[Rfam]
RNA: Bacterial large subunit ribosomal RNA, nucleotides 582 to 814
Organism: Fibrobacter succinogenes
RNA sequence: GAGUUGCUCGUGUACGGCAAGGUUAAGGGCCUCAGGUCCGGAGCCGAAGCGAAAGCGAGUCUCAACUGGGCGACCAGUCGUACACGGCAGACACGAAGCCUUAGUGAUCUACCCAUGGCCAAGCUGAAGCGGAAGUAACAUUCCGUGGAGGGCUGAACCGAUAUACAUUGAAACGUGUUCGGAUGAGCUGUGGGUAGGGGUGAAAGGCCAAUCAAACUGGGCGAUAGCUUGUU
Numbered sequence: 001g002a003g004u005u006g007c008u009c010g011u012g013u014a015c016g017g018c019a020a021g022g023u024u025a026a027g028g029g030c031c032u033c034a035g036g037u038c039c040g041g042a043g044c045c046g047a048a049g050c051g052a053a054a055g056c057g058a059g060u061c062u063c064a065a066c067u068g069g070g071c072g073a074c075c076a077g078u079c080g081u082a083c084a085c086g087g088c089a090g091a092c093a094c095g096a097a098g099c100c101u102u103a104g105u106g107a108u109c110u111a112c113c114c115a116u117g118g119c120c121a122a123g124c125u126g127a128a129g130c131g132g133a134a135g136u137a138a139c140a141u142u143c144c145g146u147g148g149a150g151g152g153c154u155g156a157a158c159c160g161a162u163a164u165a166c167a168u169u170g171a172a173a174c175g176u177g178u179u180c181g182g183a184u185g186a187g188c189u190g191u192g193g194g195u196a197g198g199g200g201u202g203a204a205a206g207g208c209c210a211a212u213c214a215a216a217c218u219g220g221g222c223g224a225u226a227g228c229u230u231g232u233u
Stems, first nucleotide, its partner, number of pairs: 005089003009086010021045004027039003049056002059071004092231002095228001099221003103218003109197011120185001122154004129146006158182003163178004199209003